Overview
The record is an 83-nucleotide RNA from Paenibacillus sambharensis, which matches "c-di-GMP-I riboswitch aptamer" in Rfam. Rfam's curators write: GEMM was predicted in a large-scale screen for bacterial structured RNA regulatory elements. Rfam links the family to the GO term cyclic-di-GMP binding.

RNA sequence: UUUCUGUAAAGGCAAAAUUGCCGAAAGGCAAUGACGCAAAGCAACGGGUCUAAGGCGCAAGCUAAGACAGCCGGGCUGCCGGU
Number, nucleotide and partner (000 for none) at each position: 001u000002u000003u000004c000005u000006g000007u000008a000009a000010a000011g000012g037013c036014a000015a000016a000017a032018u031019u030020g029021c028022c027023g000024a000025a000026a000027g022028g021029c020030a019031a018032u017033g000034a000035c000036g013037c012038a000039a000040a077041g076042c075043a000044a000045c073046g072047g071048g068049u067050c066051u000052a000053a000054g000055g062056c061057g000058c000059a000060a000061g056062c055063u000064a000065a000066g050067a049068c048069a000070g000071c047072c046073g045074g000075g042076c041077u040078g000079c000080c000081g000082g000083u000